[Rfam]
RNA sequence: CUCAAAUCUCAGGUGGUGCACCCUGGAAUCAGGCUCCCUCCUCUCUAGUUCUGGGUGCAUCACCCGAGAACUGCA
Numbered sequence: 001c002u003c004a005a006a007u008c009u010c011a012g013g014u015g016g017u018g019c020a021c022c023c024u025g026g027a028a029u030c031a032g033g034c035u036c037c038c039u040c041c042u043c044u045c046u047a048g049u050u051c052u053g054g055g056u057g058c059a060u061c062a063c064c065c066g067a068g069a070a071c072u073g074c075a
Stems, first nucleotide, its partner, number of pairs: 003073001007069004012064006019057005025052005031046003